[Rfam]
RNA sequence: UGGCAUUGAAGCAAUAGACUGGUUCGGCAUCAGUCUGUUAUGGAGCCAAACCGUGGGUUAAGCGAUAACCACAAGCCGAAUGGAUUUUCCAAAAUCGAACGAAAACGCAAAAC
Numbered sequence: 001u002g003g004c005a006u007u008g009a010a011g012c013a014a015u016a017g018a019c020u021g022g023u024u025c026g027g028c029a030u031c032a033g034u035c036u037g038u039u040a041u042g043g044a045g046c047c048a049a050a051c052c053g054u055g056g057g058u059u060a061a062g063c064g065a066u067a068a069c070c071a072c073a074a075g076c077c078g079a080a081u082g083g084a085u086u087u088u089c090c091a092a093a094a095u096c097g098a099a100c101g102a103a104a105a106c107g108c109a110a111a112a113c
Base pairs, nucleotide, nucleotide: 001048002047003046004045011041013039014038015037016036017035018034019033020032021031024079025078026077027076062108063107064106083096084095085094086093
Dot-bracket structure: ((((......(.(((((((((..[[[[...))))))))).)...)))).............(((...........]]]]...((((......)))).........))).....